A member of the RNA family "mir-34 microRNA precursor family" from Octopus sinensis, 71 nucleotides long. For this family Rfam cites "Numerous microRNPs in neuronal cells containing novel microRNAs" (Dostie et al., RNA, 2003). The match comes from Rfam's covariance-model search (58 bits). From the family's description: Human mir-34a was discovered computationally and later experimentally verified. The mature sequence is excised from the 5' arm of the hairpin. Lineage of the source: Eukaryota > Spiralia > Mollusca > Octopodidae > Octopus.
[Rfam]
RNA sequence: GGUUGUUUGGCAGUGUGGUUAGCUGGUUUGUAUGCCACACGAACAACCACUAUCUGCACUUCCAUGCAAAC
Numbered sequence: 001g002g003u004u005g006u007u008u009g010g011c012a013g014u015g016u017g018g019u020u021a022g023c024u025g026g027u028u029u030g031u032a033u034g035c036c037a038c039a040c041g042a043a044c045a046a047c048c049a050c051u052a053u054c055u056g057c058a059c060u061u062c063c064a065u066g067c068a069a070a071c
Stems, first nucleotide, its partner, number of pairs: 003069004009063002012060007020052003024049005031042001
Dot-bracket structure: ..((((..((.(((((((.(((.(((((..(..........)..)))))))).))))))).))..))))..